[Rfam]
RNA sequence: AUCCGCACAUCGACCCUUCCACGGCAGGAGCGGGGGACCCAGGUAAGCCGCCGGAACCGGAGCAGCGCACCGCGCACGCCACCGGCCCCGGCUAGGGGUGAAGCCGCGCCACACGGCGCGGCCGGGCAUCUCCAGCCCGAACCCGACAGCUCACCUCGCAGGCGCCGGAGAGGAACCUU
Numbered sequence: 001a002u003c004c005g006c007a008c009a010u011c012g013a014c015c016c017u018u019c020c021a022c023g024g025c026a027g028g029a030g031c032g033g034g035g036g037a038c039c040c041a042g043g044u045a046a047g048c049c050g051c052c053g054g055a056a057c058c059g060g061a062g063c064a065g066c067g068c069a070c071c072g073c074g075c076a077c078g079c080c081a082c083c084g085g086c087c088c089c090g091g092c093u094a095g096g097g098g099u100g101a102a103g104c105c106g107c108g109c110c111a112c113a114c115g116g117c118g119c120g121g122c123c124g125g126g127c128a129u130c131u132c133c134a135g136c137c138c139g140a141a142c143c144c145g146a147c148a149g150c151u152c153a154c155c156u157c158g159c160a161g162g163c164g165c166c167g168g169a170g171a172g173g174a175a176c177c178u179u
Stems, first nucleotide, its partner, number of pairs: 002029003030159006040095001096144003104121004124138004
Shown here is a 179-nucleotide RNA sequence from Streptomyces sp. SID7982, a member of the family "c-di-AMP riboswitch aptamer (ydaO/yuaA leader)". Its family is annotated with cyclic-di-AMP binding and regulation of gene expression in the Gene Ontology. A search with the family's covariance model found it, with a score of 46 bits. NCBI's taxonomy places the organism under Bacteria, Bacillati, Actinomycetota, Actinomycetes, Streptomyces.